[Rfam]
RNA sequence: UGCAAGUAUAUUACGAUUAAGAAGCAACUAUCUCUUGUACAUACCGUUUAUUAAUCU
Numbered sequence: 001u002g003c004a005a006g007u008a009u010a011u012u013a014c015g016a017u018u019a020a021g022a023a024g025c026a027a028c029u030a031u032c033u034c035u036u037g038u039a040c041a042u043a044c045c046g047u048u049u050a051u052u053a054a055u056c057u
Stems, first nucleotide, its partner, number of pairs: 018037005024031001
The record is a 57-nucleotide RNA from Lactuca sativa, which matches "Plastid-rps18 3UTR RNA" in Rfam. The family's RNA type in Rfam is cis-regulatory element. For this family Rfam cites "Retrograde signaling in plants: A critical review focusing on the GUN pathway and beyond" (Richter et al., Plant Commun, 2023). About the family: Plastid rps18 is a non-coding RNA (ncRNA) present in plastids. It was identified as a short stem-loop motif in the 3 prime untranslate region (3UTR) of rps18 gene.